Rfam assigns this 44-nucleotide RNA from Pseudothauera rhizosphaerae to the family "Guanidine-II riboswitch aptamer (mini-ykkC)". The base pairs follow the family's consensus structure, which is taken from published work.
RNA sequence: GUGAGGACGACCUCACCUCUCCGUUUCAAUCGGGGACGGCCCCG
Numbered sequence: 001g002u003g004a005g006g007a008c009g010a011c012c013u014c015a016c017c018u019c020u021c022c023g024u025u026u027c028a029a030u031c032g033g034g035g036a037c038g039g040c041c042c043c044g
Base pairs, nucleotide, nucleotide: 001016002015003014004013005012006011031044032043033042034041035040